The record is a 107-nucleotide sequence from Helianthus annuus, which matches "Small nucleolar RNA Z279/snoR105/snoR108" in Rfam. The literature on the family includes a 2002 paper in Curr Biol by Marker et al., "Experimental RNomics: identification of 140 candidates for small non-messenger RNAs in the plant Arabidopsis thaliana". It scores 91 bits against the family's covariance model. Lineage of the source: Eukaryota > Viridiplantae > Tracheophyta > Gunneridae > Helianthus. Its family is annotated with RNA processing and nucleolus in the Gene Ontology. This family includes the plant snoRNAs known as Z279, snoR105 and snoR108. By type it is a C/D-box small nucleolar RNA.
[Rfam]
RNA sequence: GGGAAAUGAGGAGUGGUCAAUGCUUGCAUUUAAAUAUGCAAGAUGGGGUGUCCGCCCAAAGCCUGUUACGACAAUUGGGCACCUCCAAAUUUAAGCCAUCUGAUCCC
Number, nucleotide and partner (000 for none) at each position: 001g107002g106003g105004a104005a000006a000007u000008g000009a000010g000011g000012a000013g000014u098015g097016g096017u095018c000019a000020a000021u000022g000023c042024u041025u040026g039027c038028a000029u000030u000031u000032a000033a000034a000035u000036a000037u000038g027039c026040a025041a024042g023043a000044u000045g085046g084047g083048g000049u081050g080051u079052c078053c000054g000055c000056c000057c000058a000059a000060a000061g000062c000063c077064u000065g075066u074067u000068a000069c000070g000071a000072c000073a000074a066075u065076u000077g063078g052079g051080c050081a049082c000083c047084u046085c045086c000087a000088a000089a000090u000091u000092u000093a000094a000095g017096c016097c015098a014099u000100c000101u000102g000103a000104u004105c003106c002107c001